[Rfam]
RNA: mir-286 microRNA precursor family
RNA sequence: UUAAAAUUGAAUGGCGAUUGUCGGUAUAGUCUCUUUUUCCAAAAAUCUUGUUUGUUUUUGCCAAUCUAAUAAGAAAGUGACUAGACCGAACACUCGUGCUAUAAUUUUAAAA
Numbered sequence: 001u002u003a004a005a006a007u008u009g010a011a012u013g014g015c016g017a018u019u020g021u022c023g024g025u026a027u028a029g030u031c032u033c034u035u036u037u038u039c040c041a042a043a044a045a046u047c048u049u050g051u052u053u054g055u056u057u058u059u060g061c062c063a064a065u066c067u068a069a070u071a072a073g074a075a076a077g078u079g080a081c082u083a084g085a086c087c088g089a090a091c092a093c094u095c096g097u098g099c100u101a102u103a104a105u106u107u108u109a110a111a112a
Stems, first nucleotide, its partner, number of pairs: 011102006019092003022088003027083005033077006